[Rfam]
RNA sequence: ACAAAAGAUAGAGGCGCGGAAAACAUCAGUAAUUCUCAGAGGGACACCGACGAAGGGAACGAAAGGGGAACCGCCGAAGCAAAGCUGCGGGUGCGCGCUUAUGCUGGGAUGCAGGUGAACAAUCUGCAGACUGUCGCCUUUGGGUGGAGAGCUAUCAAUGGG
Numbered sequence: 001a002c003a004a005a006a007g008a009u010a011g012a013g014g015c016g017c018g019g020a021a022a023a024c025a026u027c028a029g030u031a032a033u034u035c036u037c038a039g040a041g042g043g044a045c046a047c048c049g050a051c052g053a054a055g056g057g058a059a060c061g062a063a064a065g066g067g068g069a070a071c072c073g074c075c076g077a078a079g080c081a082a083a084g085c086u087g088c089g090g091g092u093g094c095g096c097g098c099u100u101a102u103g104c105u106g107g108g109a110u111g112c113a114g115g116u117g118a119a120c121a122a123u124c125u126g127c128a129g130a131c132u133g134u135c136g137c138c139u140u141u142g143g144g145u146g147g148a149g150a151g152c153u154a155u156c157a158a159u160g161g162g
Stems, first nucleotide, its partner, number of pairs: 007156005016074004024067001033059005078105004083100002086097004106132002110128007134147005
Lysine riboswitch aptamer: a 162-nucleotide RNA sequence from Acidaminococcus fermentans. NCBI's taxonomy places the organism under Bacteria, Negativicutes, Acidaminococcaceae, Acidaminococcus, Acidaminococcus fermentans.